[Rfam]
RNA sequence: GAGGGAAGUCCCCUCGCAUUCGGCUUGCAGGAGCAGGGUGCAAACCACCGUAAGCGGCAUUAGUCAAAAGCCCUUGUCGUGAGCGUUACGGAAAAGGCAUCGUAAAGAUGUCAGGU
Dot-bracket structure: (((((.....)))))((((((.((((....)))).))))))....(.((((((((.(((...((.....))...))).)).....))))))....((((((.....))))))..).
Numbered sequence: 001g002a003g004g005g006a007a008g009u010c011c012c013c014u015c016g017c018a019u020u021c022g023g024c025u026u027g028c029a030g031g032a033g034c035a036g037g038g039u040g041c042a043a044a045c046c047a048c049c050g051u052a053a054g055c056g057g058c059a060u061u062a063g064u065c066a067a068a069a070g071c072c073c074u075u076g077u078c079g080u081g082a083g084c085g086u087u088a089c090g091g092a093a094a095a096g097g098c099a100u101c102g103u104a105a106a107g108a109u110g111u112c113a114g115g116u
Stems, first nucleotide, its partner, number of pairs: 001015005016041006023034004046115001048091006054080002057077003063071002096112006